[Rfam]
RNA sequence: GAACCUACUUAGCGAUAAGUAGCUGAACUAAGAGAAGUCAGCAGAAGUCAUAGUACCAACCGAAUGGUUGGGAAGGAC
Numbered sequence: 001g002a003a004c005c006u007a008c009u010u011a012g013c014g015a016u017a018a019g020u021a022g023c024u025g026a027a028c029u030a031a032g033a034g035a036a037g038u039c040a041g042c043a044g045a046a047g048u049c050a051u052a053g054u055a056c057c058a059a060c061c062g063a064a065u066g067g068u069u070g071g072g073a074a075g076g077a078c
Base pairs, nucleotide, nucleotide: 002024005022006021007020008019009018010017011016038045039044047078048077049076056071057070058069059068060067061066
RNA: Group II catalytic intron D1-D4-1